[Rfam]
The record is a 127-nucleotide sequence from Aceticella autotrophica, which matches "c-di-AMP riboswitch aptamer (ydaO/yuaA leader)" in Rfam.
It scores 88 bits against the family's covariance model.

RNA sequence: UUUGCAAUCUUGCCGAAUCCAUACAGGUACGGAGGAAAAACGUAAGGGGUUAAUCUGCUUUUGCAGUAGGGAUGCCUUCUAAUCCCGCACCCGUCAACUAACUUCGGAGGCAAAAAAGGAAGGAGAU
Numbered sequence: 001u002u003u004g005c006a007a008u009c010u011u012g013c014c015g016a017a018u019c020c021a022u023a024c025a026g027g028u029a030c031g032g033a034g035g036a037a038a039a040a041c042g043u044a045a046g047g048g049g050u051u052a053a054u055c056u057g058c059u060u061u062u063g064c065a066g067u068a069g070g071g072a073u074g075c076c077u078u079c080u081a082a083u084c085c086c087g088c089a090c091c092c093g094u095c096a097a098c099u100a101a102c103u104u105c106g107g108a109g110g111c112a113a114a115a116a117a118g119g120a121a122g123g124a125g126a127u
Base pairs, nucleotide, nucleotide: 011112012111013110014109019027020026030106031105032104033103034102047092048091049090055066056065057064058063069086070085071084072083